[Rfam]
RNA sequence: GCAUGGCUGAAUACUGUGUUCUUUUUGUCAGUAGUUUACACAGCCAGACACCAUGCAAAAGAAAAAGUUUUCCCUUUUAAAGUAGCUAUAAUAGAAUGCAAAGUGUCUUCAUAGCAUAUCAUUACUAAAAAUGGAUACAAUA
Numbered sequence: 001g002c003a004u005g006g007c008u009g010a011a012u013a014c015u016g017u018g019u020u021c022u023u024u025u026u027g028u029c030a031g032u033a034g035u036u037u038a039c040a041c042a043g044c045c046a047g048a049c050a051c052c053a054u055g056c057a058a059a060a061g062a063a064a065a066a067g068u069u070u071u072c073c074c075u076u077u078u079a080a081a082g083u084a085g086c087u088a089u090a091a092u093a094g095a096a097u098g099c100a101a102a103g104u105g106u107c108u109u110c111a112u113a114g115c116a117u118a119u120c121a122u123u124a125c126u127a128a129a130a131a132u133g134g135a136u137a138c139a140a141u142a
Stems, first nucleotide, its partner, number of pairs: 001056006014043006071135003075130005089124004094119001096117004101112001